[Rfam]
RNA sequence: UAAUAUCUUCUGGUUAUCUUAAUGAUCCCAUCGCCUGCAAGGAUCGCCUUCGGGUGGCGAACGAAAACUCCUGUAGCCUGAAAGGGAGUGCAUCGCAAUGCGGUACAUCUGCGCACUUUUGGAAGCAGAUAUCGUCGGACACCUAACC
Number, nucleotide and partner (000 for none) at each position: 001u000002a015003a000004u000005a014006u013007c012008u000009u000010c000011u000012g007013g006014u005015u002016a000017u000018c000019u000020u000021a000022a000023u000024g045025a044026u043027c042028c041029c000030a000031u060032c059033g058034c057035c056036u000037g000038c000039a000040a000041g028042g027043a026044u025045c024046g055047c054048c053049u000050u000051c000052g000053g048054g047055u046056g035057g034058c033059g032060a031061a000062c000063g000064a000065a000066a000067a089068c088069u087070c086071c085072u000073g106074u105075a104076g000077c103078c102079u000080g000081a000082a000083a000084g000085g071086g070087a069088g068089u067090g101091c100092a099093u000094c000095g000096c000097a000098a000099u092100g091101c090102g078103g077104u075105a074106c073107a000108u129109c128110u127111g126112c125113g000114c000115a000116c000117u000118u146119u145120u000121g000122g000123a000124a000125g112126c111127a110128g109129a108130u000131a000132u139133c138134g000135u000136c000137g000138g133139a132140c000141a000142c000143c000144u000145a119146a118147c000148c000
RNA: STAXI RNA